[Rfam]
RNA sequence: GCCAUUGCAAUUGAUGACAACUUUUUUCCCCAUCAGAUCGACCAUGUUGAUCUAACUGAACCAUUAGCCAGUGUUUUGUCUGAUGCAUUGGC
Numbered sequence: 001g002c003c004a005u006u007g008c009a010a011u012u013g014a015u016g017a018c019a020a021c022u023u024u025u026u027u028c029c030c031c032a033u034c035a036g037a038u039c040g041a042c043c044a045u046g047u048u049g050a051u052c053u054a055a056c057u058g059a060a061c062c063a064u065u066a067g068c069c070a071g072u073g074u075u076u077u078g079u080c081u082g083a084u085g086c087a088u089u090g091g092c
Base pairs, nucleotide, nucleotide: 001092002091003090004089006087007086008085009084
Rfam assigns this 92-nucleotide sequence from Callorhinus ursinus to the family "Small nucleolar SNORD12/SNORD106". A search with the family's covariance model found it, with a score of 83 bits. Its family is annotated with nucleolus and RNA processing in the Gene Ontology. Taxonomically the source falls in Callorhinus (Eukaryota, Bilateria, Chordata, Vertebrata). The base pairs follow the family's consensus structure, which was predicted with RNAalifold.